[Rfam]
This 75-nucleotide RNA from Haemonchus placei belongs to the Rfam family "mir-5928 microRNA precursor family". The organism belongs to Haemonchus, within Eukaryota. A search with the family's covariance model found it, with a score of 71 bits. Rfam links the family to the GO terms RISC complex and miRNA-mediated post-transcriptional gene silencing.
RNA sequence: GGCCCAAAUUUGAAGUAGAGUAGUUUAGAAGGAUCAUCUGACCCUAUUAAAAUACUCUGCUUCGAGUUUGUGCCC
Dot-bracket structure: (((.(((((.((((((((((((..((((.(.(.((....)).).).))))..)))))))))))).))))).))).